[Rfam]
RNA: ZMP/ZTP riboswitch aptamer (pfl RNA motif)
Organism: Paenibacillus sedimenti
RNA sequence: UCUGGUGUGCGUAACUGGCGAAACGUAGAGGACUACGGGGGAGCGCAUAUUACAUACAGCCGGUCGCCUGGGCAGAGCGU
Numbered sequence: 001u002c003u004g005g006u007g008u009g010c011g012u013a014a015c016u017g018g019c020g021a022a023a024c025g026u027a028g029a030g031g032a033c034u035a036c037g038g039g040g041g042a043g044c045g046c047a048u049a050u051u052a053c054a055u056a057c058a059g060c061c062g063g064u065c066g067c068c069u070g071g072g073c074a075g076a077g078c079g080u
Base pairs, nucleotide, nucleotide: 003052004051005050006049007048008047009046010045011044012043015040016039017068018067019066020065021064025036026035027034028033057075059073060072061071